[Rfam]
The record is a 318-nucleotide RNA sequence from Methanotorris igneus, which matches "Archaeal signal recognition particle RNA" in Rfam. A search with the family's covariance model found it, with a score of 263 bits. The family's consensus secondary structure is taken from published work. Rfam classes the family as a non-coding RNA gene.
RNA sequence: UGUGUGGCUAGGCCGGGGGGUUGGGCGUCCCCUGUAACCCGAAAUCGUCCUCAUGCGGGGGCCGAAAACUUGGGGGCGGCAUGGUUCCCAUGCCGUCACUCCCAAACUCUGCAAUGAUAUCUCGUCCCAUGGGGUUUGAUGGUGGAGGAGCUCCCUCUGGAGGGAGGGAGUAACCUCCUUUGCUCGCCGAACCCCGUCAGGCCCGGAAGGGAGCAGCGGUAGGCGGGACAUCAACGCUCAUGGGGUAACGGGGUAGAGCAGAGGUUUGGGGCAAAGUGGCGGCAUGAGGAACCGUGCCCACCCCAAGGAAGCCACACA
Numbered sequence: 001u002g003u004g005u006g007g008c009u010a011g012g013c014c015g016g017g018g019g020g021u022u023g024g025g026c027g028u029c030c031c032c033u034g035u036a037a038c039c040c041g042a043a044a045u046c047g048u049c050c051u052c053a054u055g056c057g058g059g060g061g062c063c064g065a066a067a068a069c070u071u072g073g074g075g076g077c078g079g080c081a082u083g084g085u086u087c088c089c090a091u092g093c094c095g096u097c098a099c100u101c102c103c104a105a106a107c108u109c110u111g112c113a114a115u116g117a118u119a120u121c122u123c124g125u126c127c128c129a130u131g132g133g134g135u136u137u138g139a140u141g142g143u144g145g146a147g148g149a150g151c152u153c154c155c156u157c158u159g160g161a162g163g164g165a166g167g168g169a170g171u172a173a174c175c176u177c178c179u180u181u182g183c184u185c186g187c188c189g190a191a192c193c194c195c196g197u198c199a200g201g202c203c204c205g206g207a208a209g210g211g212a213g214c215a216g217c218g219g220u221a222g223g224c225g226g227g228a229c230a231u232c233a234a235c236g237c238u239c240a241u242g243g244g245g246u247a248a249c250g251g252g253g254u255a256g257a258g259c260a261g262a263g264g265u266u267u268g269g270g271g272c273a274a275a276g277u278g279g280c281g282g283c284a285u286g287a288g289g290a291a292c293c294g295u296g297c298c299c300a301c302c303c304c305a306a307g308g309a310a311g312c313c314a315c316a317c318a
Stems, first nucleotide, its partner, number of pairs: 001318009011063004015033007038059004043054001069307007078298004083293003089286010099271004104266002107263006118255008126244008134235003138232004142180001144178005150171009183227006194219004202211003